This 67-nucleotide RNA from Parafrankia soli belongs to the Rfam family "Transposase-2 RNA". Rfam 15.1 lists 214 matches to the family in 110 species.
RNA sequence: GAAGCGGGAACCCCGCACCGCACGAGCGGGCAAGACGGGGACCGCCGCCCGGAGACAGGCGGCUGCG
Numbered sequence: 001g002a003a004g005c006g007g008g009a010a011c012c013c014c015g016c017a018c019c020g021c022a023c024g025a026g027c028g029g030g031c032a033a034g035a036c037g038g039g040g041a042c043c044g045c046c047g048c049c050c051g052g053a054g055a056c057a058g059g060c061g062g063c064u065g066c067g
Stems, first nucleotide, its partner, number of pairs: 011040005018029004044063006051056001